[Rfam]
RNA sequence: UUUUGAUCUUUAAUGUUAUUUGAAGCUGCGUUAUCCAUCUGAAACCUCAAUAGAGGAAUUGAGGAUAAUACAUAACAAAACUGAGAUCCAAU
Numbered sequence: 001u002u003u004u005g006a007u008c009u010u011u012a013a014u015g016u017u018a019u020u021u022g023a024a025g026c027u028g029c030g031u032u033a034u035c036c037a038u039c040u041g042a043a044a045c046c047u048c049a050a051u052a053g054a055g056g057a058a059u060u061g062a063g064g065a066u067a068a069u070a071c072a073u074a075a076c077a078a079a080a081c082u083g084a085g086a087u088c089c090a091a092u
Base pairs, nucleotide, nucleotide: 002091003090005088006087007086
Dot-bracket structure: .((.(((..............................................................................))).)).
The record is a 92-nucleotide sequence from Trifolium subterraneum, which matches "Small nucleolar RNA snoR27" in Rfam. Its Rfam clan is "snR68 clan". Lineage of the source: Eukaryota > Viridiplantae > Embryophyta > Papilionoideae > Trifolium. It scores 66 bits against the family's covariance model. A reference for the family is Brown et al. (2001), "Multiple snoRNA gene clusters from Arabidopsis", RNA. Rfam links the family to the GO terms RNA processing and nucleolus. It is annotated as a C/D-box small nucleolar RNA.